[Rfam]
RNA sequence: GUACUCCCUCCGUCCCAUAAUAUAAGAGUGUAUUUGACACAACACUAGUGUGAAAAACACUCUUAUAUUAUGGGACGGAGGGAGUAU
Numbered sequence: 001g002u003a004c005u006c007c008c009u010c011c012g013u014c015c016c017a018u019a020a021u022a023u024a025a026g027a028g029u030g031u032a033u034u035u036g037a038c039a040c041a042a043c044a045c046u047a048g049u050g051u052g053a054a055a056a057a058c059a060c061u062c063u064u065a066u067a068u069u070a071u072g073g074g075a076c077g078g079a080g081g082g083a084g085u086a087u
Stems, first nucleotide, its partner, number of pairs: 003085003007081005013075005019069013033055003037051004
A member of the RNA family "MIR1120/MIR1122 microRNA precursor family" from Triticum urartu, 87 nucleotides long. It scores 89 bits against the family's covariance model. Rfam 15.1 lists 44,765 matches to the family in 8 species. For this family Rfam cites "Cloning and characterization of microRNAs from wheat (Triticum aestivum L.)" (Yao et al., Genome Biol, 2007).